[Rfam]
Description:
c-di-GMP-I-GGC riboswitch aptamer: a 92-nucleotide RNA from Mangrovimicrobium sediminis. Gene Ontology term of the family: cyclic-di-GMP binding. Taxonomically the source falls in Mangrovimicrobium (Bacteria, Pseudomonadati, Cellvibrionales, Halieaceae).
RNA sequence: CCUGGAUGAGCCAAACCAGGCGUGAGCCUGGGACGGAAAGUCACGGGUCUUCCACUGCCCACACAGCGCGGAAGACGGCCGGACUACCCGAU
Numbered sequence: 001c002c003u004g005g006a007u008g009a010g011c012c013a014a015a016c017c018a019g020g021c022g023u024g025a026g027c028c029u030g031g032g033a034c035g036g037a038a039a040g041u042c043a044c045g046g047g048u049c050u051u052c053c054a055c056u057g058c059c060c061a062c063a064c065a066g067c068g069c070g071g072a073a074g075a076c077g078g079c080c081g082g083a084c085u086a087c088c089c090g091a092u
Stems, first nucleotide, its partner, number of pairs: 004088001011036002016031006034078001039085004044081003047076007